[Rfam]
About this RNA: The record is a 105-nucleotide RNA sequence from Maledivibacter halophilus, which matches "PyrR binding site" in Rfam. It scores 64 bits against the family's covariance model. The literature on the family includes a 2001 paper in Nucleic Acids Res by Bonner et al., "Molecular recognition of pyr mRNA by the Bacillus subtilis attenuation regulatory protein PyrR". The organism belongs to Maledivibacter, within Bacteria.
RNA sequence: AGUACCUUUAAAUUGGUCCAGAGAGGCCGGAAAGGUAAAAAUAAAAAUUGUAUCUAUAAAUAGGUAAGUUAUGCCUUCCGUUUCUCUAAAUGGAAGGUUUUUUGU
Numbered sequence: 001a002g003u004a005c006c007u008u009u010a011a012a013u014u015g016g017u018c019c020a021g022a023g024a025g026g027c028c029g030g031a032a033a034g035g036u037a038a039a040a041a042u043a044a045a046a047a048u049u050g051u052a053u054c055u056a057u058a059a060a061u062a063g064g065u066a067a068g069u070u071a072u073g074c075c076u077u078c079c080g081u082u083u084c085u086c087u088a089a090a091u092g093g094a095a096g097g098u099u100u101u102u103u104g105u
Base pairs, nucleotide, nucleotide: 003037004036005035006034007033008032009031013030014029015028016027017026018025049068051066052065053064054063055062056061071100073098074097075096076095077094078093079092080091081090082089083088